[Rfam]
RNA sequence: GUCAGGAACCCCACGGCUAUAAGCCGGAGGCUUGAAUAAAGUCUAUACCUGACCAGCCUAAGUGCUUAGCGCACUACGUUAACGGUAAGCGUUAAAGUUCCUACCUUGGGAUGCGUGCCAGUCCCAUGCUCUAGAACCGAGUGGUUAAACAGGUGUACAAGGGUUAAGCUAGUGCUACUUGGAAAGUACCGACCGUUAACAUUGGCGAGGCAAACGUCAC
Numbered sequence: 001g002u003c004a005g006g007a008a009c010c011c012c013a014c015g016g017c018u019a020u021a022a023g024c025c026g027g028a029g030g031c032u033u034g035a036a037u038a039a040a041g042u043c044u045a046u047a048c049c050u051g052a053c054c055a056g057c058c059u060a061a062g063u064g065c066u067u068a069g070c071g072c073a074c075u076a077c078g079u080u081a082a083c084g085g086u087a088a089g090c091g092u093u094a095a096a097g098u099u100c101c102u103a104c105c106u107u108g109g110g111a112u113g114c115g116u117g118c119c120a121g122u123c124c125c126a127u128g129c130u131c132u133a134g135a136a137c138c139g140a141g142u143g144g145u146u147a148a149a150c151a152g153g154u155g156u157a158c159a160a161g162g163g164u165u166a167a168g169c170u171a172g173u174g175c176u177a178c179u180u181g182g183a184a185a186g187u188a189c190c191g192a193c194c195g196u197u198a199a200c201a202u203u204g205g206c207g208a209g210g211c212a213a214a215c216g217u218c219a220c
Stems, first nucleotide, its partner, number of pairs: 001053006008046001010030001011027002016024002031041003056206003060202001061075005078200006091193003099135002105128001107126006116212004137182009149173002152170002156167001157164001
About this RNA:
The record is a 220-nucleotide RNA sequence from Coleofasciculus chthonoplastes, which matches "HNH endonuclease-associated RNA and ORF (HEARO) RNA" in Rfam. It is one of the family's seed sequences. The family's RNA type in Rfam is non-coding RNA gene. Rfam 15.1 lists 952 matches to the family in 249 species. A reference for the family is Weinberg et al. (2009), "Exceptional structured noncoding RNAs revealed by bacterial metagenome analysis", Nature. The organism belongs to Coleofasciculus chthonoplastes, within Bacteria.